The family of this 121-nucleotide RNA sequence from Lapidilactobacillus dextrinicus is "Ribosomal protein L10 leader". NCBI's taxonomy places the organism under Bacteria, Bacillota, Lactobacillales, Lapidilactobacillus, Lapidilactobacillus dextrinicus. About the family: This family is a putative r-protein leader autoregulatory structure found in B. subtilis and other low-GC Gram-positive bacteria. It is located in the 5' untranslated regions of mRNAs encoding ribosomal proteins L10 and L12 (rplJ-rplL). A Rho-independent transcription terminator structure that is probably involved in regulation is included at the 3' end. Its family is annotated with regulation of gene expression in the Gene Ontology. The match comes from Rfam's covariance-model search (84 bits).

[Rfam]
RNA sequence: AUUUAAGAAUAUUUUCUACCUAAGACUCAGGUGACGUAAGUCUCAAUAUCCUGCCGAGGCCAGAUGAUAACUGUCAAGUUAACCUCUGUGUCUUUGGACACAGAGGUUUUUAUUUGGUAAU
Numbered sequence: 001a002u003u004u005a006a007g008a009a010u011a012u013u014u015u016c017u018a019c020c021u022a023a024g025a026c027u028c029a030g031g032u033g034a035c036g037u038a039a040g041u042c043u044c045a046a047u048a049u050c051c052u053g054c055c056g057a058g059g060c061c062a063g064a065u066g067a068u069a070a071c072u073g074u075c076a077a078g079u080u081a082a083c084c085u086c087u088g089u090g091u092c093u094u095u096g097g098a099c100a101c102a103g104a105g106g107u108u109u110u111u112a113u114u115u116g117g118u119a120a121u
Stems, first nucleotide, its partner, number of pairs: 028053004033042003083106010